[Rfam]
Shown here is a 49-nucleotide RNA sequence, a member of the family "SAM/SAH riboswitch aptamer". The base pairs follow the family's consensus structure, which is taken from published work. A reference for the family is Weickhmann et al. (2019), "The structure of the SAM/SAH-binding riboswitch", Nucleic Acids Res.

RNA sequence: CUCCUGUCACAACGGCUUCCUGGCGUGGCGGGCAACAUCCAAUGGAGCA
Numbered sequence: 001c002u003c004c005u006g007u008c009a010c011a012a013c014g015g016c017u018u019c020c021u022g023g024c025g026u027g028g029c030g031g032g033c034a035a036c037a038u039c040c041a042a043u044g045g046a047g048c049a
Stems, first nucleotide, its partner, number of pairs: 004032002006029005013022002015048003019045002